permuted transfer-messenger RNA: a 212-nucleotide RNA sequence from Sphingomonas montanisoli.
[Rfam]
RNA sequence: GGUGAUAAAUCGUGCCGUGUAAUAGAUGCAGCGGACCCGGGGGCGGUACCCGGCGGCUCCACCACAAAGCCCGGUUUUCCGGGCUUCAUGAUGGGGCCGAACUAGGAUCGACGUGUAUUCAAAGGCGGCAGUUUGCCCGGCCUGAAUGAGCCGUUAAACCGUUCAAAACUACAAGUGCUAACGAUAACGAGGCACUCGCGAUCGCCGCGUAA
Numbered sequence: 001g002g003u004g005a006u007a008a009a010u011c012g013u014g015c016c017g018u019g020u021a022a023u024a025g026a027u028g029c030a031g032c033g034g035a036c037c038c039g040g041g042g043g044c045g046g047u048a049c050c051c052g053g054c055g056g057c058u059c060c061a062c063c064a065c066a067a068a069g070c071c072c073g074g075u076u077u078u079c080c081g082g083g084c085u086u087c088a089u090g091a092u093g094g095g096g097c098c099g100a101a102c103u104a105g106g107a108u109c110g111a112c113g114u115g116u117a118u119u120c121a122a123a124g125g126c127g128g129c130a131g132u133u134u135g136c137c138c139g140g141c142c143u144g145a146a147u148g149a150g151c152c153g154u155u156a157a158a159c160c161g162u163u164c165a166a167a168a169c170u171a172c173a174a175g176u177g178c179u180a181a182c183g184a185u186a187a188c189g190a191g192g193c194a195c196u197c198g199c200g201a202u203c204g205c206c207g208c209g210u211a212a
Stems, first nucleotide, its partner, number of pairs: 001137005015128004027117003031114003037053005054099007138153004

The family's consensus secondary structure is taken from published work.